[Rfam]
The record is a 117-nucleotide sequence from Desulfoluna spongiiphila, which matches "Group II catalytic intron D1-D4-2" in Rfam. The organism belongs to Desulfoluna, within Bacteria.
RNA sequence: GAGGGUAGGCCCCUCGGACUCGAUCACCAGAGAUCGGGGCCAAACCGCCCUAUGCGGCUUUCAUUAAGAGUGAUGGUCGUGAGCGAUAGGGAAAAGGCAGAAAGAAACCUGUCAGGU
Numbered sequence: 001g002a003g004g005g006u007a008g009g010c011c012c013c014u015c016g017g018a019c020u021c022g023a024u025c026a027c028c029a030g031a032g033a034u035c036g037g038g039g040c041c042a043a044a045c046c047g048c049c050c051u052a053u054g055c056g057g058c059u060u061u062c063a064u065u066a067a068g069a070g071u072g073a074u075g076g077u078c079g080u081g082a083g084c085g086a087u088a089g090g091g092a093a094a095a096g097g098c099a100g101a102a103a104g105a106a107a108c109c110u111g112u113c114a115g116g117u
Base pairs, nucleotide, nucleotide: 001015002014003013004012005011016041017040019038020037021036023034024033025032046116048091049090050089051088052087053086054080055079057077058076059075061073062072063071064070096113097112098111099110100109
It scores 104 bits against the family's covariance model.